[Rfam]
A member of the RNA family "Group I catalytic intron" from Erysiphe pulchra, 275 nucleotides long. Rfam links the family to the GO term Group I intron splicing.

RNA sequence: UUGCGGGAUCCCUAUCAGGGAUCCUAAAGGAUCCCCGAAGGGGAUAUGUUAAAAUUAAAUACAGUAUUGUUACAUAUGUGCCCUCUCUUGCUCUUAGAGCAAUAAAAUUUAACUAAUUGCUGGAAACUCUUGUCAUUAUAAGAAAAUCAGCAGGAAACCAAAGGAUGGAUAAAUAUCUUAGUAGGAUCUCAAGAGACUAUACGUUAAAGAUUAAUACGUUAACUAUAUAUUAACCUAUUAAUUAAGAUAUAGUCCAAUUAUUAUUAGUGGUAUGG
Numbered sequence: 001u002u003g004c005g006g007g008a009u010c011c012c013u014a015u016c017a018g019g020g021a022u023c024c025u026a027a028a029g030g031a032u033c034c035c036c037g038a039a040g041g042g043g044a045u046a047u048g049u050u051a052a053a054a055u056u057a058a059a060u061a062c063a064g065u066a067u068u069g070u071u072a073c074a075u076a077u078g079u080g081c082c083c084u085c086u087c088u089u090g091c092u093c094u095u096a097g098a099g100c101a102a103u104a105a106a107a108u109u110u111a112a113c114u115a116a117u118u119g120c121u122g123g124a125a126a127c128u129c130u131u132g133u134c135a136u137u138a139u140a141a142g143a144a145a146a147u148c149a150g151c152a153g154g155a156a157a158c159c160a161a162a163g164g165a166u167g168g169a170u171a172a173a174u175a176u177c178u179u180a181g182u183a184g185g186a187u188c189u190c191a192a193g194a195g196a197c198u199a200u201a202c203g204u205u206a207a208a209g210a211u212u213a214a215u216a217c218g219u220u221a222a223c224u225a226u227a228u229a230u231u232a233a234c235c236u237a238u239u240a241a242u243u244a245a246g247a248u249a250u251a252g253u254c255c256a257a258u259u260a261u262u263a264u265u266a267g268u269g270g271u272a273u274g275g
Base pairs, nucleotide, nucleotide: 005025006024007023008022009021010020011019012018013017108208109207110206111205113203118152119151120150121149122148123147128143129142130141131140132139153189154188158184165179167177193255195254196253197252198251199250211241212240213239214238215237216236218234219233260273261272264269

A search with the family's covariance model found it, with a score of 63 bits.